A member of the RNA family "Mammalian CPEB3 ribozyme" from Microcaecilia unicolor, 78 nucleotides long.
The family has 14 seed sequences and 5,706 matches in Rfam 15.1.
Lineage of the source: Eukaryota > Bilateria > Tetrapoda > Gymnophiona > Microcaecilia.
For this family Rfam cites "A genomewide search for ribozymes reveals an HDV-like sequence in the human CPEB3 gene" (Salehi-Ashtiani et al., Science, 2006).
[Rfam]
Nucleotides: 078
Base pairs, nucleotide, nucleotide: 013046014045015044016043017042018041021078022077024075025074026073030038050067051066052065054063055062
Number, partner (000 for none) and nucleotide at each position: 001000a002000g003000u004000c005000c006000a007000g008000c009000u010000g011000c012000a013046a014045g015044g016043g017042c018041c019000c020000c021078a022077g023000g024075a025074g026073a027000a028000c029000a030038g031000u032000u033000c034000a035000a036000a037000u038030c039000a040000a041018g042017g043016c044015u045014c046013u047000u048000a049000u050067c051066a052065g053000a054063u055062u056000c057000c058000u059000a060000u061000c062055a063054a064000c065052c066051u067050g068000c069000a070000a071000a072000a073026u074025c075024u076000g077022c078021u